[Rfam]
Rfam assigns this 79-nucleotide sequence from Hermetia illucens to the family "drz-agam-1 ribozyme".
RNA sequence: UACUACCAAAUCCUUUCUCUACCUCCACGUGGUGACCGCUGGGAGCUCGUCCUUAACGAAAAGCUGUAGACGGGAAAGG
Numbered sequence: 001u002a003c004u005a006c007c008a009a010a011u012c013c014u015u016u017c018u019c020u021a022c023c024u025c026c027a028c029g030u031g032g033u034g035a036c037c038g039c040u041g042g043g044a045g046c047u048c049g050u051c052c053u054u055a056a057c058g059a060a061a062a063g064c065u066g067u068a069g070a071c072g073g074g075a076a077a078g079g
Stems, first nucleotide, its partner, number of pairs: 012079008021033003044065004050059002

The organism belongs to Hermetia, within Eukaryota.
Its family is annotated with catalytic activity in the Gene Ontology.